Source information:
A member of the RNA family "DUF805b RNA", 32 nucleotides long. Pairs were carried over by alignment from the consensus structure, which is taken from published work.
[Rfam]
RNA sequence: AAAGCGGAAACCGAAAAGCUUACGAGUAGGUA
Numbered sequence: 001a002a003a004g005c006g007g008a009a010a011c012c013g014a015a016a017a018g019c020u021u022a023c024g025a026g027u028a029g030g031u032a
Stems, first nucleotide, its partner, number of pairs: 002021004010031003